[Rfam]
RNA sequence: CGGAUAGCUCCGGCUGAGCUGCCAGACCCCCGACCCGGCAGCUCGGCCGGAGCGCCUU
Numbered sequence: 001c002g003g004a005u006a007g008c009u010c011c012g013g014c015u016g017a018g019c020u021g022c023c024a025g026a027c028c029c030c031c032g033a034c035c036c037g038g039c040a041g042c043u044c045g046g047c048c049g050g051a052g053c054g055c056c057u058u
Stems, first nucleotide, its partner, number of pairs: 002057002005054001007053008016044008

A member of the RNA family "F6 TB sRNA" from Gordonia rhizosphera, 58 nucleotides long. It is annotated as a small RNA.